[Rfam]
RNA sequence: CACCUUGCGGGGCAGGCGCAUGACGCCGGCUGGAAUUGGAACAGGGGCUGGCCAAGCGCUCGCGGGGGAAGCUGGGGGGCCGAAUGUCGGGGGACAUUCGGCCCCUUUUUA
Number, nucleotide and partner (000 for none) at each position: 001c000002a000003c067004c066005u065006u064007g063008c062009g061010g060011g059012g057013c056014a000015g027016g026017c025018g000019c000020a000021u000022g000023a000024c000025g017026c016027c015028g053029g052030c051031u050032g049033g048034a000035a000036u045037u044038g000039g000040a000041a000042c000043a000044g037045g036046g000047g000048c033049u032050g031051g030052c029053c028054a000055a000056g013057c012058g000059c011060u010061c009062g008063c007064g006065g005066g004067g003068g000069a000070a000071g000072c000073u000074g000075g106076g105077g104078g103079g102080c101081c100082g099083a098084a097085u096086g095087u094088c093089g000090g000091g000092g000093g088094a087095c086096a085097u084098u083099c082100g081101g080102c079103c078104c077105c076106u075107u000108u000109u000110u000111a000
RNA: Xanthomonadaceae sRNA asX1
Organism: Lysobacter antibioticus